[Rfam]
The family of this 113-nucleotide RNA from Aspergillus pseudotamarii is "tRNA".
The family's RNA type in Rfam is transfer RNA.
Pairs were carried over by alignment from the consensus structure, which is taken from published work.

Nucleotides: 113
Base pairs, nucleotide, nucleotide: 001112002111003110004109005108006107007106010025011024012023027084028083029082030081031080089105090104091103092102093101
Number, partner (000 for none) and nucleotide at each position: 001112g002111g003110u004109c005108c006107u007106a008000u009000g010025g011024g012023g013000u014000a015000g016000u017000g018000g019000u020000u021000a022000u023012c024011c025010c026000a027084c028083c029082g030081g031080a032000u033000u034000u035000u036000g037000a038000u039000g040000a041000a042000c043000a044000a045000u046000a047000u048000a049000u050000g051000c052000a053000a054000a055000c056000a057000u058000a059000c060000a061000u062000g063000u064000a065000a066000a067000c068000g069000a070000a071000g072000u073000c074000a075000a076000a077000u078000c079000u080031u081030c082029c083028g084027g085000u086000a087000a088000c089105g090104c091103c092102g093101g094000u095000u096000c097000g098000a099000a100000u101093c102092c103091g104090g105089c106007u107006a108005g109004g110003a111002c112001c113000u